[Rfam]
RNA sequence: CGGGACAUAACGCCGAACUCAACAACAGCUCAGGCUGAGUUGAGGCGGGGGAACCAAGGUUUGGAGCAGGGGUCACUGCUCCGGGGGCGAAUCGCCACAAGAUGUGGUGUAGCGCGACGCUUUCCGCGCGAGCCCGACAGCUAACCCCGUAGGCGGUCAGAAAGAGGAGAU
Numbered sequence: 001c002g003g004g005a006c007a008u009a010a011c012g013c014c015g016a017a018c019u020c021a022a023c024a025a026c027a028g029c030u031c032a033g034g035c036u037g038a039g040u041u042g043a044g045g046c047g048g049g050g051g052a053a054c055c056a057a058g059g060u061u062u063g064g065a066g067c068a069g070g071g072g073u074c075a076c077u078g079c080u081c082c083g084g085g086g087g088c089g090a091a092u093c094g095c096c097a098c099a100a101g102a103u104g105u106g107g108u109g110u111a112g113c114g115c116g117a118c119g120c121u122u123u124c125c126g127c128g129c130g131a132g133c134c135c136g137a138c139a140g141c142u143a144a145c146c147c148c149g150u151a152g153g154c155g156g157u158c159a160g161a162a163a164g165a166g167g168a169g170a171u
Base pairs, nucleotide, nucleotide: 011155012154013153014152018044019043020042021041022040023039045150046149047148048147049146050145055084085135086134087133093109094108095107096106112129113128114127115126
About this RNA:
Shown here is a 171-nucleotide RNA sequence from Solirubrobacter pauli, a member of the family "c-di-AMP riboswitch aptamer (ydaO/yuaA leader)". From the family's description: This family represents a conserved RNA structure found upstream of the ydaO and yuaA genes in Bacillus subtilis and related genes in other bacteria. The ydaO/yuaA element is thought to act as a genetic 'off' switch for the ydaO and yuaA genes in its native state. It is believed that the element may be triggered during osmotic shock leading to activation of ydaO, a predicted amino acid transporter gene, and members of the yuaA-yubG operon which code for KtrA and KtrB K+ transporters. Lineage of the source: Bacteria > Bacillati > Solirubrobacterales > Solirubrobacteraceae > Solirubrobacter.